[Rfam]
RNA sequence: UUGGCUGUAUCCAGUGAUGGAACGGUACAUGCUUUCUUUAAGAAAAAUACGUUUGCUUUGAUCCCGUGUUGGACAGAGACAAAAGG
Numbered sequence: 001u002u003g004g005c006u007g008u009a010u011c012c013a014g015u016g017a018u019g020g021a022a023c024g025g026u027a028c029a030u031g032c033u034u035u036c037u038u039u040a041a042g043a044a045a046a047a048u049a050c051g052u053u054u055g056c057u058u059u060g061a062u063c064c065c066g067u068g069u070u071g072g073a074c075a076g077a078g079a080c081a082a083a084a085g086g
Base pairs, nucleotide, nucleotide: 002029003028004026005025006024007023008022010021011020053082054081055080056078057077058076059075060074062073063072064071
Dot-bracket structure: .(((((((.((........))))))).)).......................((((((((.(((......)))))))).)))....

Shown here is an 86-nucleotide RNA sequence from Listeria booriae, a member of the family "pan motif". Pairs were carried over by alignment from the consensus structure, which is taken from published work. Rfam classes the family as a cis-regulatory element.